[Rfam]
RNA sequence: CCUCCCUUUCUUGGCACACACGCCGUUGGUCAGUACACGUGUGUGUAAUGUCCGGAGGAACAGUAUGUGCUGCCAGUGCUAUGUCUUCGGUGCCAGCGUGUGAUUUGUCUGCUGGUCCUAUCCUCAAUCACUGGCACACCU
Numbered sequence: 001c002c003u004c005c006c007u008u009u010c011u012u013g014g015c016a017c018a019c020a021c022g023c024c025g026u027u028g029g030u031c032a033g034u035a036c037a038c039g040u041g042u043g044u045g046u047a048a049u050g051u052c053c054g055g056a057g058g059a060a061c062a063g064u065a066u067g068u069g070c071u072g073c074c075a076g077u078g079c080u081a082u083g084u085c086u087u088c089g090g091u092g093c094c095a096g097c098g099u100g101u102g103a104u105u106u107g108u109c110u111g112c113u114g115g116u117c118c119u120a121u122c123c124u125c126a127a128u129c130a131c132u133g134g135c136a137c138a139c140c141u
Stems, first nucleotide, its partner, number of pairs: 001058005015045006022038001025036002074133005093115006100109001
Dot-bracket structure: (((((.........((((((.(..((........)).).))))))........)))))...............(((((..............((((((.(........))))))).............)))))........

Small nucleolar RNA SNORA57: a 141-nucleotide sequence from Conger conger. Pairs were carried over by alignment from the consensus structure, which was predicted with PFOLD. Rfam describes the family as follows. U99 belongs to the H/ACA class of snoRNAs which are thought to guide the sites of modification of uridines to pseudouridines, the target for this family is unknown. The family's RNA type in Rfam is H/ACA-box small nucleolar RNA. Taxonomically the source falls in Conger (Eukaryota, Metazoa, Neopterygii, Congrinae).